[Rfam]
RNA sequence: AAAGGAAGAAUCCAAAGGGAUAGCAUGAUCCCAAUUAGUAGGGGAAUAGAUAAGAAAAUUGAAGAAGUAUGAAAAUUUUUCAAUAUAUACUCUCUCUAUUAUGAGAUUUAGGAUCAAUGCGAUCCCUUUGGAUGCCUCCUC
Numbered sequence: 001a002a003a004g005g006a007a008g009a010a011u012c013c014a015a016a017g018g019g020a021u022a023g024c025a026u027g028a029u030c031c032c033a034a035u036u037a038g039u040a041g042g043g044g045a046a047u048a049g050a051u052a053a054g055a056a057a058a059u060u061g062a063a064g065a066a067g068u069a070u071g072a073a074a075a076u077u078u079u080u081c082a083a084u085a086u087a088u089a090c091u092c093u094c095u096c097u098a099u100u101a102u103g104a105g106a107u108u109u110a111g112g113a114u115c116a117a118u119g120c121g122a123u124c125c126c127u128u129u130g131g132a133u134g135c136c137u138c139c140u141c
Stems, first nucleotide, its partner, number of pairs: 003140004008135001010133012023120003026116006
RNA: mir-393 microRNA precursor family
Organism: Senna tora